Iron response element I: a 35-nucleotide sequence from Xenopus laevis. The match comes from Rfam's covariance-model search (44 bits). Taxonomically the source falls in Xenopus (Eukaryota, Eumetazoa, Amphibia, Anura). Rfam 15.1 lists 6,829 matches to the family in 599 species. Gene Ontology term of the family: response to iron ion. Rfam classes the family as a cis-regulatory element.
RNA sequence: UAGUUCUUGCUUCAACAGUGAUUGAACGGAACCUG
Number, nucleotide and partner (000 for none) at each position: 001u000002a000003g032004u031005u030006c029007u028008u000009g027010c000011u026012u025013c024014a023015a022016c020017a000018g000019u000020g016021a000022u015023u014024g013025a012026a011027c009028g007029g006030a005031a004032c003033c000034u000035g000